[Rfam]
RNA sequence: AGGCAGCCCCCUACUCUGACAACGAUGGAGAGGGAGGUGUUAAUCUGCUCGGAAAUUAAUCAUACUUUUGAUCUUCAGAUCUGCUGAGAUGAAUCUUUGAUGCGGGUCUAGUAAAGCUCAAGUACAUU
Number, nucleotide and partner (000 for none) at each position: 001a000002g041003g040004c039005a038006g000007c037008c036009c034010c033011c032012u031013a000014c000015u029016c028017u027018g000019a000020c000021a000022a000023c000024g000025a000026u000027g017028g016029a015030g000031a012032g011033g010034g009035a000036g008037g007038u005039g004040u003041u002042a000043a000044u000045c000046u000047g000048c000049u000050c000051g000052g000053a000054a000055a000056u000057u000058a000059a000060u000061c000062a000063u000064a000065c122066u121067u120068u000069u000070g117071a000072u115073c000074u000075u000076c000077a109078g108079a107080u106081c105082u000083g103084c102085u000086g000087a000088g095089a094090u000091g000092a000093a000094u089095c088096u000097u000098u000099g000100a000101u000102g084103c083104g000105g081106g080107u079108c078109u077110a000111g000112u000113a000114a000115a072116g000117c070118u000119c000120a067121a066122g065123u000124a000125c000126a000127u000128u000

Overview:
The record is a 128-nucleotide RNA sequence from Actinidia chinensis, which matches "Small nucleolar RNA snoR77" in Rfam. By type it is an H/ACA-box small nucleolar RNA. The literature on the family includes a 2002 paper in Curr Biol by Marker et al., "Experimental RNomics: identification of 140 candidates for small non-messenger RNAs in the plant Arabidopsis thaliana". NCBI's taxonomy places the organism under Eukaryota, Streptophytina, Magnoliopsida, Actinidia, Actinidia chinensis. Gene Ontology terms of the family: nucleolus and RNA processing.